[Rfam]
RNA sequence: GGCCGGUGAAGAAAACCUUCUGCCAUAUGAGUACACUGAUUAUACAGCAACCGUUCCAUUUAUUUCUGAGGCU
Number, nucleotide and partner (000 for none) at each position: 001g073002g072003c071004c070005g000006g000007u000008g000009a000010a000011g000012a000013a000014a000015a000016c000017c000018u000019u000020c000021u000022g000023c000024c000025a000026u000027a000028u000029g000030a000031g000032u000033a000034c000035a000036c000037u000038g000039a000040u000041u000042a000043u000044a000045c000046a000047g000048c000049a000050a000051c000052c000053g000054u000055u000056c000057c000058a000059u000060u000061u000062a000063u000064u000065u000066c000067u000068g000069a000070g004071g003072c002073u001
Notes:
Small nucleolar RNA SNORD47: a 73-nucleotide RNA from Esox lucius. For this family Rfam cites "RNomics: an experimental approach that identifies 201 candidates for novel, small, non-messenger RNAs in mouse" (Huttenhofer et al., EMBO J, 2001). Rfam classes the family as a C/D-box small nucleolar RNA.